MIR8643 microRNA precursor family: a 141-nucleotide RNA from Gossypium arboreum. A search with the family's covariance model found it, with a score of 139 bits.

RNA sequence: AUUUCUUUUAAUAUAUCAAGAAGUUGAAUUGACAGUGAAGAAAGAAGCAUGAAGUCGAAAGCCAUCAUUGCCUAUAACCAAAACUCAUACCAUGCUUCUUUCUUCACAGUCAAUUCAACUUUCUGAUAUGUUAAAAGAAAU
Numbered sequence: 001a002u003u004u005c006u007u008u009u010a011a012u013a014u015a016u017c018a019a020g021a022a023g024u025u026g027a028a029u030u031g032a033c034a035g036u037g038a039a040g041a042a043a044g045a046a047g048c049a050u051g052a053a054g055u056c057g058a059a060a061g062c063c064a065u066c067a068u069u070g071c072c073u074a075u076a077a078c079c080a081a082a083a084c085u086c087a088u089a090c091c092a093u094g095c096u097u098c099u100u101u102c103u104u105c106a107c108a109g110u111c112a113a114u115u116c117a118a119c120u121u122u123c124u125g126a127u128a129u130g131u132u133a134a135a136a137g138a139a140a141u
Stems, first nucleotide, its partner, number of pairs: 004138015020122012033109001035107012048094004057086001
The family has 2 seed sequences and 522 matches in Rfam 15.1.